[Rfam]
A member of the RNA family "IMES-1 RNA motif", 194 nucleotides long. Rfam classes the family as a non-coding RNA gene. The sequence is in the family's curated seed alignment. For this family Rfam cites "Exceptional structured noncoding RNAs revealed by bacterial metagenome analysis" (Weinberg et al., Nature, 2009).

RNA sequence: CGGUAACAGACUAAGAAGGGAACUGCAGAACCCAAAUUAGAAAGAAACCACAGGCAGAGAACAGAAGGGUGAAAGUUCAAGCAAGCUAGCCGGCAAAAAAGCAAACUUGACCACCAAGGAUAAAAGAGAUCUUAUCCAAGGAUGCAAAAGAUAAUCUCACUUUUGACACCCACUGAUCUCGAACUUAAAGAAAA
Numbered sequence: 001c002g003g004u005a006a007c008a009g010a011c012u013a014a015g016a017a018g019g020g021a022a023c024u025g026c027a028g029a030a031c032c033c034a035a036a037u038u039a040g041a042a043a044g045a046a047a048c049c050a051c052a053g054g055c056a057g058a059g060a061a062c063a064g065a066a067g068g069g070u071g072a073a074a075g076u077u078c079a080a081g082c083a084a085g086c087u088a089g090c091c092g093g094c095a096a097a098a099a100a101g102c103a104a105a106c107u108u109g110a111c112c113a114c115c116a117a118g119g120a121u122a123a124a125a126g127a128g129a130u131c132u133u134a135u136c137c138a139a140g141g142a143u144g145c146a147a148a149a150g151a152u153a154a155u156c157u158c159a160c161u162u163u164u165g166a167c168a169c170c171c172a173c174u175g176a177u178c179u180c181g182a183a184c185u186u187a188a189a190g191a192a193a194a
Stems, first nucleotide, its partner, number of pairs: 002049003011040004063174002067171002077110005085102003118137005126158005145165006